[Rfam]
RNA: mir-15 microRNA precursor family
Organism: Naja naja
RNA sequence: GCCAGUUGUGCCUUAGCAGCAUAUAAAUAUUGGAGUUAUCAUUAGUAAAGUAUCUCCAAUAUCAAUUGUGCUGCUGAAGUAAGGCUGUU
Numbered sequence: 001g002c003c004a005g006u007u008g009u010g011c012c013u014u015a016g017c018a019g020c021a022u023a024u025a026a027a028u029a030u031u032g033g034a035g036u037u038a039u040c041a042u043u044a045g046u047a048a049a050g051u052a053u054c055u056c057c058a059a060u061a062u063c064a065a066u067u068g069u070g071c072u073g074c075u076g077a078a079g080u081a082a083g084g085c086u087g088u089u
Base pairs, nucleotide, nucleotide: 001089003087004086005085006084013077014076015075016074017073018072019071020070021069022068023067024065027062028061029060030059031058032057033056034055035054